[Rfam]
RNA: Purine riboswitch aptamer
RNA sequence: AGAUUAAGUUGUAUUAAACCUCGUAUAUCAUGGGAAUAUGGCCCAUAAGUCUCUACCCGAUUACCUUAAAUAAUUGGACUAUGAGGAAAGUGGAAUUUGGG
Number, nucleotide and partner (000 for none) at each position: 001a000002g000003a000004u000005u000006a000007a000008g000009u000010u000011g000012u000013a000014u000015u000016a000017a000018a000019c086020c085021u084022c083023g082024u081025a080026u000027a000028u048029c000030a046031u045032g044033g043034g042035a000036a000037u000038a000039u000040g000041g000042c034043c033044c032045a031046u030047a000048a028049g000050u000051c000052u000053c000054u000055a000056c000057c077058c076059g075060a074061u073062u072063a071064c000065c000066u000067u000068a000069a000070a000071u063072a062073a061074u060075u059076g058077g057078a000079c000080u025081a024082u023083g022084a021085g020086g019087a000088a000089a000090g000091u000092g000093g000094a000095a000096u000097u000098u000099g000100g000101g000